[Rfam]
RNA sequence: GUUCGUCUUCAGGGGCAGGGUGUAAUUCCCGACCGGCGGUAAAAGUCCGCGACCUGCUGCAAUGUUGAUUCUUGUGGUGGCUGAACUGGUGUGAUCCCAGUACCGAUAGUGAAAGUCUAGAUGGAAGAAGAUAGGG
Numbered sequence: 001g002u003u004c005g006u007c008u009u010c011a012g013g014g015g016c017a018g019g020g021u022g023u024a025a026u027u028c029c030c031g032a033c034c035g036g037c038g039g040u041a042a043a044a045g046u047c048c049g050c051g052a053c054c055u056g057c058u059g060c061a062a063u064g065u066u067g068a069u070u071c072u073u074g075u076g077g078u079g080g081c082u083g084a085a086c087u088g089g090u091g092u093g094a095u096c097c098c099a100g101u102a103c104c105g106a107u108a109g110u111g112a113a114a115g116u117c118u119a120g121a122u123g124g125a126a127g128a129a130g131a132u133a134g135g136g
Stems, first nucleotide, its partner, number of pairs: 003134001005132006018030003032116002034105002036050004045103002054080005085101005107119003
This 136-nucleotide RNA sequence from Latilactobacillus sakei belongs to the Rfam family "FMN riboswitch aptamer (RFN element)". The RFN element is a highly conserved domain that is found frequently in the 5'-untranslated regions of prokaryotic mRNAs that encode for flavin mononucleotide (FMN) biosynthesis and transport proteins. Taxonomically the source falls in Latilactobacillus sakei subsp. sakei (Bacteria, Lactobacillales, Lactobacillaceae, Latilactobacillus).